Shown here is a 105-nucleotide sequence from Papaver somniferum, a member of the family "Small nucleolar RNA Z103". Lineage of the source: Eukaryota > Streptophyta > Tracheophyta > Euphyllophyta > Papaver. The match comes from Rfam's covariance-model search (94 bits). For this family Rfam cites "The high diversity of snoRNAs in plants: identification and comparative study of 120 snoRNA genes from Oryza sativa" (Chen et al., Nucleic Acids Res, 2003). The family's consensus secondary structure was predicted with PFOLD.
RNA sequence: UUGGAAGUGAUGAUCCUUUCCCCAGCUUAUCGACUAUGAUUAUACUGUGCGCUUUUUGUAAGUUUCUCUAUCAAGAGAAUCUGUCAAGCCAGAAAUCUGAUCCAA
Numbered sequence: 001u002u003g004g005a006a007g008u009g010a011u012g013a014u015c016c017u018u019u020c021c022c023c024a025g026c027u028u029a030u031c032g033a034c035u036a037u038g039a040u041u042a043u044a045c046u047g048u049g050c051g052c053u054u055u056u057u058g059u060a061a062g063u064u065u066c067u068c069u070a071u072c073a074a075g076a077g078a079a080u081c082u083g084u085c086a087a088g089c090c091a092g093a094a095a096u097c098u099g100a101u102c103c104a105a
Base pairs, nucleotide, nucleotide: 001105002104003103004102005101